The record is a 98-nucleotide RNA sequence from Seleniivibrio woodruffii, which matches "Guanidine-I riboswitch aptamer" in Rfam. Pairs were carried over by alignment from the consensus structure. It scores 73 bits against the family's covariance model.
RNA sequence: UAUGAAGUUCUCUAGGGUUCCGCGGGAGACCGGACAGUGACCGAGAGAGAACGGCAGUAAAACAAACUGUUACACGGCGGGAUAAAAGCCCGGGAGAU
Numbered sequence: 001u002a003u004g005a006a007g008u009u010c011u012c013u014a015g016g017g018u019u020c021c022g023c024g025g026g027a028g029a030c031c032g033g034a035c036a037g038u039g040a041c042c043g044a045g046a047g048a049g050a051a052c053g054g055c056a057g058u059a060a061a062a063c064a065a066a067c068u069g070u071u072a073c074a075c076g077g078c079g080g081g082a083u084a085a086a087a088g089c090c091c092g093g094g095a096g097a098u
Stems, first nucleotide, its partner, number of pairs: 007052006015042002020039001021037001022035001023032003053071006073093001075096001079091003